Source information:
Shown here is a 130-nucleotide sequence from Tetranychus urticae, a member of the family "U4atac minor spliceosomal RNA". Gene Ontology terms of the family: mRNA 5'-splice site recognition, spliceosomal tri-snRNP complex assembly and pre-mRNA 5'-splice site binding. Rfam classes the family as a spliceosomal small nuclear RNA. A reference for the family is Lorkovic et al. (2005), "Evolutionary conservation of minor U12-type spliceosome between plants and humans", RNA.

[Rfam]
RNA sequence: AUAGUCAUUGUCAAAGUGGAGGUAAUCAUUCAAUGAAGGUUUACUGAGGAUGAUUUUGCUGAAACCUACACACUAAACACCGCAUCACUUUAGCUUCGUUAAGUUAAUAGCUGAUGCAAUUUUUGCAAGC
Numbered sequence: 001a002u003a004g005u006c007a008u009u010g011u012c013a014a015a016g017u018g019g020a021g022g023u024a025a026u027c028a029u030u031c032a033a034u035g036a037a038g039g040u041u042u043a044c045u046g047a048g049g050a051u052g053a054u055u056u057u058g059c060u061g062a063a064a065c066c067u068a069c070a071c072a073c074u075a076a077a078c079a080c081c082g083c084a085u086c087a088c089u090u091u092a093g094c095u096u097c098g099u100u101a102a103g104u105u106a107a108u109a110g111c112u113g114a115u116g117c118a119a120u121u122u123u124u125g126c127a128a129g130c
Stems, first nucleotide, its partner, number of pairs: 005019005021059001024056001025054007037045002082117006091106006